[Rfam]
A member of the RNA family "U7 small nuclear RNA" from Mandrillus leucophaeus, 62 nucleotides long. Pairs were carried over by alignment from the consensus structure, which was predicted with PFOLD. A search with the family's covariance model found it, with a score of 54 bits. Animal histone pre-mRNAs are spliced by a different mechanism than nuclear pre-mRNAs and self-splicing introns. This processing involves the U7 snRNP, which contains only one RNA species: U7. The 5' end of U7 RNA is thought to base-pair to a conserved spacer element downstream of the cleavage site in histone pre-mRNA. This family contains a number of annotated U7 pseudogenes.

RNA sequence: AAGUGUCACAGCUCUUUUAGAAUUUCUCUAGCAGGUUUUCUGGUUUUCACUGGAGUCCCUCC
Numbered sequence: 001a002a003g004u005g006u007c008a009c010a011g012c013u014c015u016u017u018u019a020g021a022a023u024u025u026c027u028c029u030a031g032c033a034g035g036u037u038u039u040c041u042g043g044u045u046u047u048c049a050c051u052g053g054a055g056u057c058c059c060u061c062c
Stems, first nucleotide, its partner, number of pairs: 034059002038055007
Dot-bracket structure: .................................((..(((((((....)))))))..))...